Shown here is a 139-nucleotide RNA from Prosthecobacter gellanilyticus, a member of the family "Y RNA-like". On this family, see Chen et al., Cell 2013: "An RNA degradation machine sculpted by Ro autoantigen and noncoding RNA". In Deinococcus radiodurans Rsr is tethered via Y RNA to the exoribonuclease PNPase and channels single-stranded RNA into the PNPase cavity. Rsr and Y RNA enhance degradation of structured RNAs by PNPase. This role could be conserved, as Rsr and ncRNAs called YrlA and YrlB (Y RNA like) also associate with PNPase in an evolutionary distant bacterium Salmonella Typhimurium. Pairs were carried over by alignment from the consensus structure, which is taken from published work.

[Rfam]
RNA sequence: GUGACGAAUGCUGAUGGAACUACAUGGUUUCUCACCCUCCUGUCGUGGGUUCGAAUCCCACCGGUCUCACUUUCGACGGGACCGUAGCUCAGCCUGGUAGAGCAGAGUAAAACGUUUCAUCUCACCUUGUCGUCGCCAC
Numbered sequence: 001g002u003g004a005c006g007a008a009u010g011c012u013g014a015u016g017g018a019a020c021u022a023c024a025u026g027g028u029u030u031c032u033c034a035c036c037c038u039c040c041u042g043u044c045g046u047g048g049g050u051u052c053g054a055a056u057c058c059c060a061c062c063g064g065u066c067u068c069a070c071u072u073u074c075g076a077c078g079g080g081a082c083c084g085u086a087g088c089u090c091a092g093c094c095u096g097g098u099a100g101a102g103c104a105g106a107g108u109a110a111a112a113c114g115u116u117u118c119a120u121c122u123c124a125c126c127u128u129g130u131c132g133u134c135g136c137c138a139c
Stems, first nucleotide, its partner, number of pairs: 002135006013121007023107001038106002045061005052097001062084006087103004

Taxonomically the source falls in Prosthecobacter (Bacteria, Pseudomonadati, Verrucomicrobiia, Verrucomicrobiales).